A member of the RNA family "Antisense to pHK01_035" from Klebsiella pneumoniae, 97 nucleotides long. The sequence is in the family's curated seed alignment. Lineage of the source: Bacteria > Pseudomonadati > Enterobacteriaceae > Klebsiella > Klebsiella pneumoniae subsp. pneumoniae. It is annotated as an antisense RNA. From the family's description: The pHK01 produces plasmid-encoded small RNAs and mediates expression of host sRNAs. On this family, see Jiang et al., FEMS Microbiol Ecol 2017: "The CTX-M-14 plasmid pHK01 encodes novel small RNAs and influences host growth and motility".

RNA sequence: GAUCAUAAAGUUGACUCCUUAUGGUAGUUAACGAAGCCGGAAAAACCGUUCGUGCGAUUUUUACGGCGUGGGAGAAGCAGGGUUUACCCUGCUUUUU
Numbered sequence: 001g002a003u004c005a006u007a008a009a010g011u012u013g014a015c016u017c018c019u020u021a022u023g024g025u026a027g028u029u030a031a032c033g034a035a036g037c038c039g040g041a042a043a044a045a046c047c048g049u050u051c052g053u054g055c056g057a058u059u060u061u062u063a064c065g066g067c068g069u070g071g072g073a074g075a076a077g078c079a080g081g082g083u084u085u086a087c088c089c090u091g092c093u094u095u096u097u
Stems, first nucleotide, its partner, number of pairs: 002025007036067004041062001045058001047056003075094008